[Rfam]
RNA sequence: GCGAUGAGCUCUAUUGAAUAAGUCAAUGAACGUUUUAUACGCUAUGUGGAGCGUAGUUUAUUGCCUCAAUACGUAGGACACCUAUUAUAGGUGUC
Numbered sequence: 001g002c003g004a005u006g007a008g009c010u011c012u013a014u015u016g017a018a019u020a021a022g023u024c025a026a027u028g029a030a031c032g033u034u035u036u037a038u039a040c041g042c043u044a045u046g047u048g049g050a051g052c053g054u055a056g057u058u059u060a061u062u063g064c065c066u067c068a069a070u071a072c073g074u075a076g077g078a079c080a081c082c083u084a085u086u087a088u089a090g091g092u093g094u095c
Base pairs, nucleotide, nucleotide: 014069015068016067017066024063025062026061027060028059029058030057031056038055039054041052042051043050077095078094079093080092081091082090083089084088